Shown here is a 100-nucleotide RNA sequence from Durio zibethinus, a member of the family "MIR390 microRNA precursor family". Gene Ontology terms of the family: miRNA-mediated post-transcriptional gene silencing and RISC complex.
[Rfam]
RNA sequence: UGGGAGAAUCUGUAAAGCUCAGGAGGGAUAGCGCCAUCUCAAGGUGGUUUUUAAAUAUCAUUAGUGGCGCUAUCUAUCCUGAGUUUCAUGGGUUCUUCCU
Numbered sequence: 001u002g003g004g005a006g007a008a009u010c011u012g013u014a015a016a017g018c019u020c021a022g023g024a025g026g027g028a029u030a031g032c033g034c035c036a037u038c039u040c041a042a043g044g045u046g047g048u049u050u051u052u053a054a055a056u057a058u059c060a061u062u063a064g065u066g067g068c069g070c071u072a073u074c075u076a077u078c079c080u081g082a083g084u085u086u087c088a089u090g091g092g093u094u095c096u097u098c099c100u
Base pairs, nucleotide, nucleotide: 010091016085017084018083019082020081021080022079023078024077026075027074028073029072030071031070032069033068034067035066
The family's consensus secondary structure was predicted with WAR. The literature on the family includes a 2005 paper in Genome Res by Adai et al., "Computational prediction of miRNAs in Arabidopsis thaliana". A search with the family's covariance model found it, with a score of 100 bits.